Notes: This 135-nucleotide RNA sequence from Aneurinibacillus sp. XH2 belongs to the Rfam family "PyrR binding site". A reference for the family is Bonner et al. (2001), "Molecular recognition of pyr mRNA by the Bacillus subtilis attenuation regulatory protein PyrR", Nucleic Acids Res. The match comes from Rfam's covariance-model search (58 bits).

RNA sequence: GGAACCUUUAAAUCAGUCCUGUGAGGCUGGCAAGGAGAACGAAUAGGUUUGGCAUAGGGAUGGGGAGUUGUGCGCUCACUCAUUCUUUGUCGAGCACAAAAAAGCUUUCUGCCGCCCGCAGAAAGCUUUUUUUGU
Numbered sequence: 001g002g003a004a005c006c007u008u009u010a011a012a013u014c015a016g017u018c019c020u021g022u023g024a025g026g027c028u029g030g031c032a033a034g035g036a037g038a039a040c041g042a043a044u045a046g047g048u049u050u051g052g053c054a055u056a057g058g059g060a061u062g063g064g065g066a067g068u069u070g071u072g073c074g075c076u077c078a079c080u081c082a083u084u085c086u087u088u089g090u091c092g093a094g095c096a097c098a099a100a101a102a103a104g105c106u107u108u109c110u111g112c113c114g115c116c117c118g119c120a121g122a123a124a125g126c127u128u129u130u131u132u133u134g135u
Base pairs, nucleotide, nucleotide: 005035006034007033008032013030014029015028016027017026018025047095048094049093050092051091052090053089054088056086057085058084059083099131100130101129102128103127104126105125106124107123108122109121110120111119112118